The record is a 416-nucleotide RNA from Psilocybe cf. subviscida, which matches "Nuclear RNase P" in Rfam. By type it is a ribozyme. Its Rfam clan is "RNaseP clan". Rfam 15.1 lists 3,848 matches to the family in 1,862 species.
RNA sequence: ACAGAUGAAAAGCUGCGAGGCUCGCCCCGUACAGGACGAAGGCUCUGCCUUCCUUCAACUUCGCGAGCGGGCUAAGGUCUGAGCAUUCUAGUCAUUCUCGAUUGGUCCUAGCAGGACCCAGCUGUAACCAGCUGCAACGGCGUAUCAGAAAUCCGACCUCCCCCGCUCAUCCCUCUCGUAGGGAACCCCGAAGAUCGUGCGCCCCCGUGGCGGGCAGGAGGGCAUGGCGGGACGGGGUCUUGGAACUCGCUGUAAUGACCGGGUGAUGCGAUGUUCGUCUCUGAUGCUGGCUGCAAGGCCAGCUUGGGGCGUGCGCGACCAUCCUUCAGCUCACUUCGCAGCGCAUGUUUGGGCUCCCUGUGCCUUUGGGCAGGGGGAAUCCUUUUGCAACUCGAUUCAGACUACUCUUCGUCUGU
Numbered sequence: 001a002c003a004g005a006u007g008a009a010a011a012g013c014u015g016c017g018a019g020g021c022u023c024g025c026c027c028c029g030u031a032c033a034g035g036a037c038g039a040a041g042g043c044u045c046u047g048c049c050u051u052c053c054u055u056c057a058a059c060u061u062c063g064c065g066a067g068c069g070g071g072c073u074a075a076g077g078u079c080u081g082a083g084c085a086u087u088c089u090a091g092u093c094a095u096u097c098u099c100g101a102u103u104g105g106u107c108c109u110a111g112c113a114g115g116a117c118c119c120a121g122c123u124g125u126a127a128c129c130a131g132c133u134g135c136a137a138c139g140g141c142g143u144a145u146c147a148g149a150a151a152u153c154c155g156a157c158c159u160c161c162c163c164c165g166c167u168c169a170u171c172c173c174u175c176u177c178g179u180a181g182g183g184a185a186c187c188c189c190g191a192a193g194a195u196c197g198u199g200c201g202c203c204c205c206c207g208u209g210g211c212g213g214g215c216a217g218g219a220g221g222g223c224a225u226g227g228c229g230g231g232a233c234g235g236g237g238u239c240u241u242g243g244a245a246c247u248c249g250c251u252g253u254a255a256u257g258a259c260c261g262g263g264u265g266a267u268g269c270g271a272u273g274u275u276c277g278u279c280u281c282u283g284a285u286g287c288u289g290g291c292u293g294c295a296a297g298g299c300c301a302g303c304u305u306g307g308g309g310c311g312u313g314c315g316c317g318a319c320c321a322u323c324c325u326u327c328a329g330c331u332c333a334c335u336u337c338g339c340a341g342c343g344c345a346u347g348u349u350u351g352g353g354c355u356c357c358c359u360g361u362g363c364c365u366u367u368g369g370g371c372a373g374g375g376g377g378a379a380u381c382c383u384u385u386u387g388c389a390a391c392u393c394g395a396u397u398c399a400g401a402c403u404a405c406u407c408u409u410c411g412u413c414u415g416u
Stems, first nucleotide, its partner, number of pairs: 001416004007410003020068005038052005079400005086258002104118005119134006137253006156238005